[Rfam]
RNA: Mammalian CPEB3 ribozyme
RNA sequence: UCCGGCUGCCAUAACGGCCGUAGCAGAAGUGCUCACGUCGCAGUCUGGUCAGAUUCUAAUAAUCUGCAGGUUCUGCU
Dot-bracket structure: ............[..[[[...((((((((((.......))).]]]]...((((((.....))))))....)))))))
Numbered sequence: 001u002c003c004g005g006c007u008g009c010c011a012u013a014a015c016g017g018c019c020g021u022a023g024c025a026g027a028a029g030u031g032c033u034c035a036c037g038u039c040g041c042a043g044u045c046u047g048g049u050c051a052g053a054u055u056c057u058a059a060u061a062a063u064c065u066g067c068a069g070g071u072u073c074u075g076c077u
Stems, first nucleotide, its partner, number of pairs: 013046001016045003022077007029041003050066006